Shown here is a 140-nucleotide sequence from Camelus bactrianus, a member of the family "U4 spliceosomal RNA". The organism belongs to Camelus, within Eukaryota. Rfam's curators write: U4 small nuclear RNA (U4 snRNA) is a component of the major U2-dependent spliceosome. The family's RNA type in Rfam is spliceosomal small nuclear RNA.
[Rfam]
RNA sequence: AGCUUUGAGCAGUGGUAGCACGGUCGCUUCUGAGGUUUAACCAAGGCACCAUGGUUACUGAUUGAAAACAUGAGACCAGAUUCCAGCCCCACCUGCCCCCAGUGGCAGGCUGAGGCUCCACAUCCAUUUCCUGCCUUGGU
Numbered sequence: 001a002g003c004u005u006u007g008a009g010c011a012g013u014g015g016u017a018g019c020a021c022g023g024u025c026g027c028u029u030c031u032g033a034g035g036u037u038u039a040a041c042c043a044a045g046g047c048a049c050c051a052u053g054g055u056u057a058c059u060g061a062u063u064g065a066a067a068a069c070a071u072g073a074g075a076c077c078a079g080a081u082u083c084c085a086g087c088c089c090c091a092c093c094u095g096c097c098c099c100c101a102g103u104g105g106c107a108g109g110c111u112g113a114g115g116c117u118c119c120a121c122a123u124c125c126a127u128u129u130c131c132u133g134c135c136u137u138g139g140u
Stems, first nucleotide, its partner, number of pairs: 020052001022050003026047003034042003086116003089112001092109006